[Rfam]
RNA sequence: AAUAAUAAUAGAUGAAUACCAAAGACAGUAGGUGCCUAAGGGCUUAAUUUCCUACCGAGGUGUAAAGAAUGCAGUUAUUUUAACUCUUUGCGCUAUUUGGUGCAGGGAGUUUUUUUCUUCGCUG
Number, nucleotide and partner (000 for none) at each position: 001a000002a000003u000004a000005a000006u000007a000008a000009u000010a000011g000012a000013u000014g000015a000016a000017u000018a000019c000020c000021a000022a000023a000024g000025a000026c000027a000028g055029u054030a053031g052032g051033u000034g043035c042036c041037u000038a000039a000040g000041g036042g035043c034044u000045u000046a000047a000048u000049u000050u000051c032052c031053u030054a029055c028056c000057g000058a000059g000060g000061u000062g000063u000064a000065a000066a000067g000068a000069a000070u000071g000072c000073a000074g000075u000076u000077a000078u000079u000080u000081u000082a000083a000084c109085u108086c107087u106088u105089u104090g103091c102092g101093c100094u000095a000096u000097u000098u000099g000100g093101u092102g091103c090104a089105g088106g087107g086108a085109g084110u000111u000112u000113u000114u000115u000116u000117c000118u000119u000120c000121g000122c000123u000124g000
RNA: Ribosomal protein L10 leader
Organism: Culicoidibacter larvae